RNA sequence: CGAACCCGCGCGGGAGAGUCCGGAGGUGCCGCAGGGCACGGACCGGCGCCGAAGGAGCAAGUCCUCCCCGGAAUCUCUCAGGCACCCGAUACCGCGUGGGCGAG
Numbered sequence: 001c002g003a004a005c006c007c008g009c010g011c012g013g014g015a016g017a018g019u020c021c022g023g024a025g026g027u028g029c030c031g032c033a034g035g036g037c038a039c040g041g042a043c044c045g046g047c048g049c050c051g052a053a054g055g056a057g058c059a060a061g062u063c064c065u066c067c068c069c070g071g072a073a074u075c076u077c078u079c080a081g082g083c084a085c086c087c088g089a090u091a092c093c094g095c096g097u098g099g100g101c102g103a104g
Stems, first nucleotide, its partner, number of pairs: 006099008020046004048083003051079002055077003
A member of the RNA family "Glycine riboswitch aptamer" from Kitasatospora acidiphila, 104 nucleotides long. Rfam describes the family as follows. This family represents the bacterial glycine riboswitch. The match comes from Rfam's covariance-model search (58 bits). The source organism's lineage runs through Bacteria, Actinomycetes, Kitasatosporales, Streptomycetaceae and Kitasatospora.